[Rfam]
RNA: Xanthomonas sRNA sX9
RNA sequence: AUGUCCCACGCGUACCUGCGGUUCUGAGCGCGCCGUCCGUCCCCACCUGACGACUGCUCGCUACGUUCUGCUAACG
Numbered sequence: 001a002u003g004u005c006c007c008a009c010g011c012g013u014a015c016c017u018g019c020g021g022u023u024c025u026g027a028g029c030g031c032g033c034c035g036u037c038c039g040u041c042c043c044c045a046c047c048u049g050a051c052g053a054c055u056g057c058u059c060g061c062u063a064c065g066u067u068c069u070g071c072u073a074a075c076g
Base pairs, nucleotide, nucleotide: 003015004014006012019035020034021033022032024030048073049072051070052069